Background
This 137-nucleotide RNA from Jaculus jaculus belongs to the Rfam family "Small nucleolar RNA SNORA42/SNORA80 family". The match comes from Rfam's covariance-model search (96 bits). Its family is annotated with nucleolus and RNA processing in the Gene Ontology. Rfam's curators write: The members of this family belong to the H/ACA class of snoRNAs that guide the sites of modification of uridines to pseudouridines. Human ACA42 (SNORA42) was cloned from HeLa cells by immunoprecipitation with anti-GAR1 antibody. Its is predicted to guide the pseudouridylation of residues U109 and U572 of 18S rRNA. ACA42 shares the same host gene with ACA26, ACA46, ACA50. This family also includes mammalian snoRNA ACA67 (SNORA80) which was identified by computational screening and its expression in mouse experimentally verified by Northern blot and primer extension analysis. Rfam classes the family as an H/ACA-box small nucleolar RNA.
RNA sequence: GCAUGGAUUUAGAUUUCAUGGGAGUAGGCCCACACCCUUGGUCGUAUAUAGUGUCCCAUGCCAGAGCAAACUGAGGCCCUGAACCAUUGCCUGGACUCUCUGUGUAGGCUGCUGGCACUGAAGUGGGUUGCACAUUG
Number, nucleotide and partner (000 for none) at each position: 001g061002c060003a059004u058005g056006g055007a054008u053009u000010u000011a000012g000013a000014u000015u051016u050017c000018a049019u048020g000021g047022g000023a000024g000025u000026a045027g000028g043029c041030c040031c000032a000033c000034a000035c000036c000037c000038u000039u000040g030041g029042u000043c028044g000045u026046a000047u021048a019049u018050a016051g015052u000053g008054u007055c006056c005057c000058a004059u003060g002061c001062c000063a000064g000065a000066g000067c000068a000069a000070a000071c000072u000073g000074a000075g129076g128077c127078c126079c125080u000081g000082a000083a000084c000085c120086a119087u000088u000089g000090c115091c114092u111093g110094g109095a000096c107097u106098c000099u000100c000101u000102g000103u000104g000105u000106a097107g096108g000109c094110u093111g092112c000113u000114g091115g090116c000117a000118c000119u086120g085121a000122a000123g000124u000125g079126g078127g077128u076129u075130g000131c000132a000133c000134a000135u000136u000137g000